This 108-nucleotide RNA sequence from Miscanthus lutarioriparius belongs to the Rfam family "MIR5565 microRNA precursor family". NCBI's taxonomy places the organism under Eukaryota, Euphyllophyta, Andropogonodae, Saccharinae, Miscanthus.

RNA sequence: GCAUAUGUAUUCAUCUCGAUCCACAAAUGUUGAAGUGGAUUAGAGUGGAAUUAAACUAAAUUUCAUUCCAUUCCACUUCAACACAUGUGGAUUGAUGUGGAUACACAU
Numbered sequence: 001g002c003a004u005a006u007g008u009a010u011u012c013a014u015c016u017c018g019a020u021c022c023a024c025a026a027a028u029g030u031u032g033a034a035g036u037g038g039a040u041u042a043g044a045g046u047g048g049a050a051u052u053a054a055a056c057u058a059a060a061u062u063u064c065a066u067u068c069c070a071u072u073c074c075a076c077u078u079c080a081a082c083a084c085a086u087g088u089g090g091a092u093u094g095a096u097g098u099g100g101a102u103a104c105a106c107a108u
Stems, first nucleotide, its partner, number of pairs: 004107001006105009016095010028083005035076005041070001043068001045066003
The family's consensus secondary structure was predicted with RNAalifold.